RNA: Vault RNA
RNA sequence: GGGCCGGCUUUACCCCAGCGGUUCCUUUGUCGUGUCCCAUCACGGGUUCGAAUCCCGCGGGCACCGCUGGACCAUUG
Numbered sequence: 001g002g003g004c005c006g007g008c009u010u011u012a013c014c015c016c017a018g019c020g021g022u023u024c025c026u027u028u029g030u031c032g033u034g035u036c037c038c039a040u041c042a043c044g045g046g047u048u049c050g051a052a053u054c055c056c057g058c059g060g061g062c063a064c065c066g067c068u069g070g071a072c073c074a075u076u077g
Stems, first nucleotide, its partner, number of pairs: 002072001004070004014061003018058004026052004